Shown here is a 70-nucleotide RNA sequence from Acidovorax sp. CF316, a member of the family "Xanthine riboswitch aptamer (NMT1 RNA)". A reference for the family is Yu and Breaker (2020), "A bacterial riboswitch class senses xanthine and uric acid to regulate genes associated with purine oxidation", RNA.

RNA sequence: CUGCCGAGUAGAAGCGUUCAGCGCUGCCACCUUUCUUCGCUGUUGGUGGCGCCCGGAAAUUGCUCAGUUC
Numbered sequence: 001c002u003g004c005c006g007a008g009u010a011g012a013a014g015c016g017u018u019c020a021g022c023g024c025u026g027c028c029a030c031c032u033u034u035c036u037u038c039g040c041u042g043u044u045g046g047u048g049g050c051g052c053c054c055g056g057a058a059a060u061u062g063c064u065c066a067g068u069u070c
Stems, first nucleotide, its partner, number of pairs: 006065005015055001018057002021052009
Its family is annotated with purine nucleobase binding in the Gene Ontology.